[Rfam]
Rfam assigns this 81-nucleotide sequence from Soboliphyme baturini to the family "mir-31 microRNA precursor family". On this family, see Aravin et al., Dev Cell 2003: "The small RNA profile during Drosophila melanogaster development". The source organism's lineage runs through Eukaryota, Metazoa, Eumetazoa, Bilateria and Soboliphyme. The base pairs follow the family's consensus structure, which was predicted with RNAalifold.

RNA sequence: GGCUCCACAGUAGGCAAGAUGUUGGCAUAGCUGAGCGGAUUCGAUUCUCAGUUAUGCUACAUCCCGCCAGCUUUGGAUGAG
Numbered sequence: 001g002g003c004u005c006c007a008c009a010g011u012a013g014g015c016a017a018g019a020u021g022u023u024g025g026c027a028u029a030g031c032u033g034a035g036c037g038g039a040u041u042c043g044a045u046u047c048u049c050a051g052u053u054a055u056g057c058u059a060c061a062u063c064c065c066g067c068c069a070g071c072u073u074u075g076g077a078u079g080a081g
Base pairs, nucleotide, nucleotide: 005076006075007074009072010071011070013068014067015066018063019062020061021060023059024058025057026056027055028054029053030052031051
Dot-bracket structure: ....(((.(((.(((..((((.(((((((((...................)))))))))))))..))).))).))).....